[Rfam]
RNA sequence: GCAAUGCUAAGAAGGGCACUCUGUCCACUAACAUCCACAUCAUCAAUGUGGAUGUUAGUGGACAGAGUGCCCUUCUUAGCAUUGC
Numbered sequence: 001g002c003a004a005u006g007c008u009a010a011g012a013a014g015g016g017c018a019c020u021c022u023g024u025c026c027a028c029u030a031a032c033a034u035c036c037a038c039a040u041c042a043u044c045a046a047u048g049u050g051g052a053u054g055u056u057a058g059u060g061g062a063c064a065g066a067g068u069g070c071c072c073u074u075c076u077u078a079g080c081a082u083u084g085c
Base pairs, nucleotide, nucleotide: 002084003083006080007079009077010076011075012074013073014072015071016070017069018068019067020066021065023063024062025061026060027059028058029057030056031055032054034052035051037049038048039047040046
The record is an 85-nucleotide RNA from Triplophysa rosa, which matches "mir-1684 microRNA precursor family" in Rfam.
The match comes from Rfam's covariance-model search (60 bits).
The family's consensus secondary structure was predicted with RNAalifold.
The organism belongs to Triplophysa, within Eukaryota.
Gene Ontology terms of the family: miRNA-mediated post-transcriptional gene silencing and RISC complex.